[Rfam]
RNA sequence: UGCACUGCAUGAUAUGUGCACUCAGCAGCUCCUUCCUGCUGGUGUGCUCAAAGAACAGUGCAAUAAAAAUUCACUGUCUGGCAUCAUUGGUUUUCUUGGCUUUGGUGCCUAUUAAACUUGGUAGUUCUAUUGAUAUAGGU
Numbered sequence: 001u002g003c004a005c006u007g008c009a010u011g012a013u014a015u016g017u018g019c020a021c022u023c024a025g026c027a028g029c030u031c032c033u034u035c036c037u038g039c040u041g042g043u044g045u046g047c048u049c050a051a052a053g054a055a056c057a058g059u060g061c062a063a064u065a066a067a068a069a070u071u072c073a074c075u076g077u078c079u080g081g082c083a084u085c086a087u088u089g090g091u092u093u094u095c096u097u098g099g100c101u102u103u104g105g106u107g108c109c110u111a112u113u114a115a116a117c118u119u120g121g122u123a124g125u126u127c128u129a130u131u132g133a134u135a136u137a138g139g140u
Stems, first nucleotide, its partner, number of pairs: 002061006015054001017052001018047004023042001024040005064129002067126002070123001071121003080109005

The record is a 140-nucleotide RNA from Nannospalax galili, which matches "Small nucleolar RNA SNORA8" in Rfam. A search with the family's covariance model found it, with a score of 117 bits. ACA8 is a member of the H/ACA class of snoRNA that guide the sites of modification of uridines to pseudouridines. The family's RNA type in Rfam is H/ACA-box small nucleolar RNA. Taxonomically the source falls in Nannospalax (Eukaryota, Deuterostomia, Sarcopterygii, Myomorpha). The family's consensus secondary structure was predicted with RNAfold.